Shown here is a 382-nucleotide RNA sequence from Pontibacillus chungwhensis, a member of the family "Bacterial RNase P class B". By type it is a ribozyme. Its family is annotated with tRNA processing, ribonuclease P activity and dimeric ribonuclease P complex in the Gene Ontology. Rfam's curators write: Ribonuclease P (RNase P) is a ubiquitous endoribonuclease, found in archaea, bacteria and eukarya as well as chloroplasts and mitochondria. Its best characterised activity is the generation of mature 5'-ends of tRNAs by cleaving the 5'-leader elements of precursor-tRNAs. Cellular RNase Ps are ribonucleoproteins. RNA from bacterial RNase Ps retains its catalytic activity in the absence of the protein subunit, i.e. it is a ribozyme. Isolated eukaryotic and archaeal RNase P RNA has not been shown to retain its catalytic function, but is still essential for the catalytic activity of the holoenzyme. Although the archaeal and eukaryotic holoenzyme s have a much greater protein content than the bacterial ones, the RNA cores from all the three lineages are homologous -- helices corresponding to P1, P2, P3, P4, and P10/11 are common to all cellular RNase P RNAs. Yet, there is considerable sequence variation, particularly among the eukaryotic RNAs.

RNA sequence: AUGCUUGGGUAAUCGCUGCAUGUUUUAGCAUGUAGAGGAAAGUCCAUGCUCGCACAGGCUGAGAUGCUUGUAGUGAUCGUGCUUGACGAAAUCAUAAGUCAAGGUAGUGUUCACACUAACGGCAGGGAAGACACCUACGUCUUAGUGAUAAGGUGUUGCGAUCUUGAAAGUGCCACAGUGACGAAGUUUGAUUGGAAACAAUCAAAGUGGAACGAGGUAAACCCCACGAGCGAGCAACCCAAAAUUAGGUAGGGGCACUCUUCUGAGGAAAUUCAACCAAUAUGAAGAGACAAGCUUUGCGCUUGUAGAUAGAUGAUUACCACCUUUUGUACGAGGUUGACCACCGGUAGCAGUACAAAGGUACAGAACAUGGCUUACAAAG
Numbered sequence: 001a002u003g004c005u006u007g008g009g010u011a012a013u014c015g016c017u018g019c020a021u022g023u024u025u026u027a028g029c030a031u032g033u034a035g036a037g038g039a040a041a042g043u044c045c046a047u048g049c050u051c052g053c054a055c056a057g058g059c060u061g062a063g064a065u066g067c068u069u070g071u072a073g074u075g076a077u078c079g080u081g082c083u084u085g086a087c088g089a090a091a092u093c094a095u096a097a098g099u100c101a102a103g104g105u106a107g108u109g110u111u112c113a114c115a116c117u118a119a120c121g122g123c124a125g126g127g128a129a130g131a132c133a134c135c136u137a138c139g140u141c142u143u144a145g146u147g148a149u150a151a152g153g154u155g156u157u158g159c160g161a162u163c164u165u166g167a168a169a170g171u172g173c174c175a176c177a178g179u180g181a182c183g184a185a186g187u188u189u190g191a192u193u194g195g196a197a198a199c200a201a202u203c204a205a206a207g208u209g210g211a212a213c214g215a216g217g218u219a220a221a222c223c224c225c226a227c228g229a230g231c232g233a234g235c236a237a238c239c240c241a242a243a244a245u246u247a248g249g250u251a252g253g254g255g256c257a258c259u260c261u262u263c264u265g266a267g268g269a270a271a272u273u274c275a276a277c278c279a280a281u282a283u284g285a286a287g288a289g290a291c292a293a294g295c296u297u298u299g300c301g302c303u304u305g306u307a308g309a310u311a312g313a314u315g316a317u318u319a320c321c322a323c324c325u326u327u328u329g330u331a332c333g334a335g336g337u338u339g340a341c342c343a344c345c346g347g348u349a350g351c352a353g354u355a356c357a358a359a360g361g362u363a364c365a366g367a368a369c370a371u372g373g374c375u376u377a378c379a380a381a382g
Base pairs, nucleotide, nucleotide: 004382005381006380007378008321009320010319011318012317013316014315016035017034018033019032020031021030040376041375042374044373045372046371047370048369049234050233051232052231053230054071055070056069057068058067059066077229078228079227080226081225082103083102084101085100086099087098104120105118106117107116108115109114121224122223124164125163126162132155133154134153135152139149140148141147170222171221172218173217174216187206188205189204190203191202192201193200194199238254239253240252258289259288260287261286262285263284290306291305292304293303294302295301324361325360326359327358328357329356330355331354332353